[Rfam]
RNA sequence: CCAUGACACCCACCGAGAACGCACGGCAGGAGCGGGGGAACCAGGUAGGUCGCCGCAACGGAUGCUCCUGACGUCACGGUCGUUUCCUGACGUUUCGGACAGUCCGUCGCGGCUUGGGGUGAAGUCGCGCCCGUCAGGACGCGACCGGGCAGCUCCCCGCCCGAACCCGACAGCUCACCUCGCAGGCGCUGGAGAGGAAAACA
Numbered sequence: 001c002c003a004u005g006a007c008a009c010c011c012a013c014c015g016a017g018a019a020c021g022c023a024c025g026g027c028a029g030g031a032g033c034g035g036g037g038g039a040a041c042c043a044g045g046u047a048g049g050u051c052g053c054c055g056c057a058a059c060g061g062a063u064g065c066u067c068c069u070g071a072c073g074u075c076a077c078g079g080u081c082g083u084u085u086c087c088u089g090a091c092g093u094u095u096c097g098g099a100c101a102g103u104c105c106g107u108c109g110c111g112g113c114u115u116g117g118g119g120u121g122a123a124g125u126c127g128c129g130c131c132c133g134u135c136a137g138g139a140c141g142c143g144a145c146c147g148g149g150c151a152g153c154u155c156c157c158c159g160c161c162c163g164a165a166c167c168c169g170a171c172a173g174c175u176c177a178c179c180u181c182g183c184a185g186g187c188g189c190u191g192g193a194g195a196g197g198a199a200a201a202c203a
Stems, first nucleotide, its partner, number of pairs: 001030002032183006042116005117168003125144004147162004
The record is a 203-nucleotide sequence from Streptomyces humidus, which matches "c-di-AMP riboswitch aptamer (ydaO/yuaA leader)" in Rfam. Rfam links the family to the GO terms cyclic-di-AMP binding and regulation of gene expression. The match comes from Rfam's covariance-model search (64 bits).